Overview:
The record is an 84-nucleotide RNA sequence from Candidatus Izimoplasma sp. HR1, which matches "c-di-GMP-I riboswitch aptamer" in Rfam. The match comes from Rfam's covariance-model search (69 bits). About the family: GEMM was predicted in a large-scale screen for bacterial structured RNA regulatory elements. The organism belongs to Candidatus Izemoplasma, within Bacteria. Pairs were carried over by alignment from the consensus structure, which is taken from published work.
[Rfam]
RNA sequence: AAUCAUCAAAGGCAAAUACAUGGAAACAUGUAGACGCAAAGUCUCAGAGCUAAUGGGUAAACCUAUGCUGGCUGGAUUGCACGA
Numbered sequence: 001a002a003u004c005a006u007c008a009a010a011g012g013c014a015a016a017u018a019c020a021u022g023g024a025a026a027c028a029u030g031u032a033g034a035c036g037c038a039a040a041g042u043c044u045c046a047g048a049g050c051u052a053a054u055g056g057g058u059a060a061a062c063c064u065a066u067g068c069u070g071g072c073u074g075g076a077u078u079g080c081a082c083g084a
Base pairs, nucleotide, nucleotide: 012037013036017032018031019030020029021028022027040078041077042076043075045074046073047072048069049068050067055063056062